A member of the RNA family "PyrR binding site" from Lederbergia citrea, 129 nucleotides long. The source organism's lineage runs through Bacteria, Bacillati, Bacilli, Bacillaceae and Lederbergia. Rfam 15.1 lists 1,498 matches to the family in 930 species. Its family is annotated with pyrimidine nucleobase transport and pyrimidine nucleobase biosynthetic process in the Gene Ontology. The match comes from Rfam's covariance-model search (60 bits). The family's consensus secondary structure is taken from published work.
RNA sequence: AGCACCUUUAAUUUAGUCCUGUGAGGCUGAGAAGGAUACGGAAUAGAAACGAUGAUUUAUUUUCGAAUCGUUAUCUAUAUGUAGGAUACGUAUACCCUCUUGCCUUUCUGGUGAGAGGGUUUUUAUUUU
Numbered sequence: 001a002g003c004a005c006c007u008u009u010a011a012u013u014u015a016g017u018c019c020u021g022u023g024a025g026g027c028u029g030a031g032a033a034g035g036a037u038a039c040g041g042a043a044u045a046g047a048a049a050c051g052a053u054g055a056u057u058u059a060u061u062u063u064c065g066a067a068u069c070g071u072u073a074u075c076u077a078u079a080u081g082u083a084g085g086a087u088a089c090g091u092a093u094a095c096c097c098u099c100u101u102g103c104c105u106u107u108c109u110g111g112u113g114a115g116a117g118g119g120u121u122u123u124u125a126u127u128u129u
Base pairs, nucleotide, nucleotide: 005035006034007033008032009031013030014029015028016027017026018025045078047076049074051072052071053070054069055068056067057066058065090124092122094120095119096118097117098116099115100114101113102112103111